[Rfam]
RNA sequence: UUUCCUCAUCCUUACUCCAGGGUUAUGGUUAUCCAUACAUUCCCUGGCAUUACUUGAGGAUAAAUAAAUUGUUCUUAUCAUGCUUCUGGAAACUAUAUUUCCACUGGCUUUGCGAUUAUGAACAUACAUA
Numbered sequence: 001u002u003u004c005c006u007c008a009u010c011c012u013u014a015c016u017c018c019a020g021g022g023u024u025a026u027g028g029u030u031a032u033c034c035a036u037a038c039a040u041u042c043c044c045u046g047g048c049a050u051u052a053c054u055u056g057a058g059g060a061u062a063a064a065u066a067a068a069u070u071g072u073u074c075u076u077a078u079c080a081u082g083c084u085u086c087u088g089g090a091a092a093c094u095a096u097a098u099u100u101c102c103a104c105u106g107g108c109u110u111u112g113c114g115a116u117u118a119u120g121a122a123c124a125u126a127c128a129u130a
Stems, first nucleotide, its partner, number of pairs: 003060006017047006025040003070124003074120001082108003087103001089102001091100002